[Rfam]
RNA sequence: CGCGGAGGUUUCUUCACAACGGAUCGUCCGGCACGUACCUGCCGGUGAAGGAGUUUGAUU
Dot-bracket structure: .........(((((((...........((((((......)))))))))))))........
The record is a 60-nucleotide RNA from Branchiibius sp. NY16-3462-2, which matches "msiK RNA" in Rfam. Rfam 15.1 lists 1,374 matches to the family in 1,364 species. Rfam classes the family as a cis-regulatory element.